[Rfam]
RNA sequence: AGAAUGUUAAGCCCUGUGAUGAUGACUCUAAUGAGUUUGAGUGGUGCCGCUUGGUUGUUUCUUGCUGAAACUCGUCAUCUUUA
Numbered sequence: 001a002g003a004a005u006g007u008u009a010a011g012c013c014c015u016g017u018g019a020u021g022a023u024g025a026c027u028c029u030a031a032u033g034a035g036u037u038u039g040a041g042u043g044g045u046g047c048c049g050c051u052u053g054g055u056u057g058u059u060u061c062u063u064g065c066u067g068a069a070a071c072u073c074g075u076c077a078u079c080u081u082u083a
Base pairs, nucleotide, nucleotide: 018079019078020077021076022075023074024073025036026035027034028033039052040051041050042049043048053072054071055070056069058067
The record is an 83-nucleotide RNA sequence from Arabidopsis lyrata, which matches "Small Cajal body specific RNA ncR27" in Rfam.
The base pairs follow the family's consensus structure, which was predicted with RNAfold.
The literature on the family includes a 2015 paper in BMC Genomics by Qu et al., "Promoter-based identification of novel non-coding RNAs reveals the presence of dicistronic snoRNA-miRNA genes in Arabidopsis thaliana".
Rfam links the family to the GO terms RNA processing, Cajal body and nucleolus.
The organism belongs to Arabidopsis lyrata, within Eukaryota.
It is annotated as a small Cajal body RNA.
Rfam's curators put it in the seed alignment.